RNA sequence: AUGGAGCUAUGUUGGCAAAAAUCCAUUCAUGGUUCUUAAAGAAGCAUGAAGAGAAGUGUGAGAGGGUCCUCACUAAUCACCCUCUCUCACUUUCAACAGUUUGCUUGUGCUUAGCUAUUGGCUUCUCUAAUCACAAAGGGAUGUGUUCAAACAUUCUCUACGAGUAGUAGAAGCAAUUAUGCAUUCUCCAAAGGAGCAGAAGCUUUGGCUACAGCCUAGCAAACCGGCAAGUCACAAAAAGGCAAUGGACUCCAUAGGGGUUCUU
Number, nucleotide and partner (000 for none) at each position: 001a000002u000003g000004g000005a000006g000007c000008u000009a000010u000011g000012u000013u000014g000015g000016c000017a000018a000019a000020a000021a000022u000023c000024c000025a000026u000027u000028c000029a000030u000031g000032g000033u000034u000035c000036u000037u000038a000039a000040a000041g000042a000043a000044g000045c000046a000047u000048g000049a000050a000051g000052a000053g000054a000055a000056g000057u000058g087059u000060g000061a000062g000063a000064g000065g000066g000067u000068c000069c000070u000071c000072a000073c000074u000075a000076a000077u000078c000079a000080c000081c000082c000083u000084c000085u000086c000087u058088c000089a000090c000091u000092u000093u000094c000095a000096a000097c000098a000099g224100u223101u222102u221103g220104c219105u000106u000107g000108u000109g000110c000111u000112u000113a000114g000115c000116u000117a000118u213119u000120g000121g000122c000123u000124u000125c000126u000127c000128u000129a000130a000131u000132c000133a000134c000135a000136a000137a000138g000139g000140g000141a000142u000143g000144u000145g000146u000147u000148c000149a000150a000151a000152c000153a000154u000155u000156c000157u000158c000159u000160a000161c000162g000163a000164g000165u000166a000167g000168u000169a000170g000171a000172a000173g000174c000175a000176a000177u000178u000179a000180u000181g000182c000183a000184u000185u000186c000187u000188c000189c000190a000191a000192a000193g000194g000195a000196g000197c000198a000199g000200a000201a000202g000203c000204u000205u000206u000207g000208g000209c000210u000211a000212c000213a118214g000215c000216c000217u000218a000219g104220c103221a102222a101223a100224c099225c000226g000227g000228c000229a000230a000231g000232u000233c000234a000235c000236a000237a000238a000239a000240a000241g000242g000243c000244a000245a000246u000247g000248g263249a262250c000251u260252c259253c000254a000255u000256a000257g000258g000259g252260g251261u000262u249263c248264u000265u000
Overview: Shown here is a 265-nucleotide RNA sequence from Abrus precatorius, a member of the family "Early nodulin 40". Gene Ontology term of the family: nodulation. The organism belongs to Abrus, within Eukaryota. The family has 35 seed sequences and 341 matches in Rfam 15.1.